This 110-nucleotide part of an RNA from Zopfia rhizophila belongs to the Rfam family "Eukaryotic small subunit ribosomal RNA".
Pairs were carried over by alignment from the consensus structure, which is taken from published work.
The family has 90 seed sequences and 75,755 matches in Rfam 15.1.
Gene Ontology terms of the family: ribosome and structural constituent of ribosome.
Clan: SSU clan.
NCBI's taxonomy places the organism under Eukaryota, Fungi, Dikarya, Pezizomycotina, Zopfia rhizophila.

[Rfam]
RNA sequence: AUAUUAAUAGAGCUAAUAAGUUUAUUAUUUUAACUAAAAAAUCUAAAUAAUCUUAUUAAACUCUAUUAUACUAGGGAUAGAGUAUUAUAAUUAUUAUUUUUUAAUAAAAA
Numbered sequence: 001a002u003a004u005u006a007a008u009a010g011a012g013c014u015a016a017u018a019a020g021u022u023u024a025u026u027a028u029u030u031u032a033a034c035u036a037a038a039a040a041a042u043c044u045a046a047a048u049a050a051u052c053u054u055a056u057u058a059a060a061c062u063c064u065a066u067u068a069u070a071c072u073a074g075g076g077a078u079a080g081a082g083u084a085u086u087a088u089a090a091u092u093a094u095u096a097u098u099u100u101u102u103a104a105u106a107a108a109a110a
Stems, first nucleotide, its partner, number of pairs: 006067007018054003028047002033042001035040001074105001079100006